RNA sequence: UGAAUAGGUAGAGGCUGCAUUGCUUAAUAGUACUAUACGUGAGGAUGACAACGUAGAUCGUUUAGGAAAGGAAGCAAUGCCGAAAUUAAAUGUUCAUGUCCUAUAACAUUUAGUUGGGGUUAUUUUAAAGAGGAAUAACACUGCCAUUUAUAUGGAAUCAUAUAAAUGGUGAGCUACAGAGUAU
Numbered sequence: 001u002g003a004a005u006a007g008g009u010a011g012a013g014g015c016u017g018c019a020u021u022g023c024u025u026a027a028u029a030g031u032a033c034u035a036u037a038c039g040u041g042a043g044g045a046u047g048a049c050a051a052c053g054u055a056g057a058u059c060g061u062u063u064a065g066g067a068a069a070g071g072a073a074g075c076a077a078u079g080c081c082g083a084a085a086u087u088a089a090a091u092g093u094u095c096a097u098g099u100c101c102u103a104u105a106a107c108a109u110u111u112a113g114u115u116g117g118g119g120u121u122a123u124u125u126u127a128a129a130g131a132g133g134a135a136u137a138a139c140a141c142u143g144c145c146a147u148u149u150a151u152a153u154g155g156a157a158u159c160a161u162a163u164a165a166a167u168g169g170u171g172a173g174c175u176a177c178a179g180a181g182u183a184u
Stems, first nucleotide, its partner, number of pairs: 008177004017080009033065003037061003084115011116142002119139008144169009

Lysine riboswitch aptamer: a 184-nucleotide sequence from Psychrobacillus sp. FJAT-21963.